mir-9242 microRNA precursor family: a 66-nucleotide RNA from Myotis myotis. It scores 78 bits against the family's covariance model. NCBI's taxonomy places the organism under Eukaryota, Craniata, Gnathostomata, Dipnotetrapodomorpha, Myotis.
RNA sequence: GGCCUCCCUCUGUGGGGUGAUUGAUCUUGGGGGGCCCCCAGAUCGAUCGCCCUGCAGAGGGAGGCC
Numbered sequence: 001g002g003c004c005u006c007c008c009u010c011u012g013u014g015g016g017g018u019g020a021u022u023g024a025u026c027u028u029g030g031g032g033g034g035c036c037c038c039c040a041g042a043u044c045g046a047u048c049g050c051c052c053u054g055c056a057g058a059g060g061g062a063g064g065c066c
Stems, first nucleotide, its partner, number of pairs: 001066027029038003